[Rfam]
RNA: Rhizobiales sRNA Atu_Ti1
RNA sequence: GUCCAGGAUGCGGCGGACCAGACCCAAAAGCUUAUCAAGAUCAAAACUGCUGCCGGCCAAUAUCGCGAAGUCAUCAUCGCGAGGCCGGCAGC
Numbered sequence: 001g002u003c004c005a006g007g008a009u010g011c012g013g014c015g016g017a018c019c020a021g022a023c024c025c026a027a028a029a030g031c032u033u034a035u036c037a038a039g040a041u042c043a044a045a046a047c048u049g050c051u052g053c054c055g056g057c058c059a060a061u062a063u064c065g066c067g068a069a070g071u072c073a074u075c076a077u078c079g080c081g082a083g084g085c086c087g088g089c090a091g092c
Stems, first nucleotide, its partner, number of pairs: 001018004031039002049092010063082006